[Rfam]
RNA sequence: GGCUCAAUGAUUUUUACCAGUCUAUCUGGUUAUAUACGCUAUUCUGAUUUCAGCUGUUGACAAAAUAGUAUUCAUGAGAGCU
Numbered sequence: 001g002g003c004u005c006a007a008u009g010a011u012u013u014u015u016a017c018c019a020g021u022c023u024a025u026c027u028g029g030u031u032a033u034a035u036a037c038g039c040u041a042u043u044c045u046g047a048u049u050u051c052a053g054c055u056g057u058u059g060a061c062a063a064a065a066u067a068g069u070a071u072u073c074a075u076g077a078g079a080g081c082u
Base pairs, nucleotide, nucleotide: 001082002081003080004079005078
Shown here is an 82-nucleotide RNA sequence from Panicum virgatum, a member of the family "Small nucleolar RNA U54".
Pairs were carried over by alignment from the consensus structure, which was predicted with PFOLD.
On this family, see Chen et al., Nucleic Acids Res 2003: "The high diversity of snoRNAs in plants: identification and comparative study of 120 snoRNA genes from Oryza sativa".
Lineage of the source: Eukaryota > Euphyllophyta > Magnoliopsida > Panicoideae > Panicum sect. Hiantes.
Rfam describes the family as follows. U54 is a C/D box small nucleolar RNA, which acts as a methylation guide for 18S ribosomal RNA in plants.